The record is a 143-nucleotide RNA sequence from Cerasibacillus quisquiliarum, which matches "FMN riboswitch aptamer (RFN element)" in Rfam.
Lineage of the source: Bacteria > Bacillota > Bacilli > Bacillaceae > Cerasibacillus.

[Rfam]
RNA sequence: CUACAUCUUCGGGGCAGGGUGUGAUUCCCGACCGACGGUAACGAGCAAUAUUGUUCGAAGUCCGUGACCCACUCAUAAGUGCAGUGGUUGAUCUGGUGCAAAUCCAGAACCGACAGUUAAAGUCUGGAUGGGAGAAGAUGAGU
Numbered sequence: 001c002u003a004c005a006u007c008u009u010c011g012g013g014g015c016a017g018g019g020u021g022u023g024a025u026u027c028c029c030g031a032c033c034g035a036c037g038g039u040a041a042c043g044a045g046c047a048a049u050a051u052u053g054u055u056c057g058a059a060g061u062c063c064g065u066g067a068c069c070c071a072c073u074c075a076u077a078a079g080u081g082c083a084g085u086g087g088u089u090g091a092u093c094u095g096g097u098g099c100a101a102a103u104c105c106a107g108a109a110c111c112g113a114c115a116g117u118u119a120a121a122g123u124c125u126g127g128a129u130g131g132g133a134g135a136a137g138a139u140g141a142g143u
Base pairs, nucleotide, nucleotide: 004140005139006138007137008136009135010134017029018028019027031123032122033112034111035065036064037063038062060110061109069087070086092108093107094106095105096104114126115125116124
Dot-bracket structure: ...(((((((......(((.......))).[[((((((.....................[[))))...((...............))....(((((.......)))))]])).(((.....]]))).......)))))))...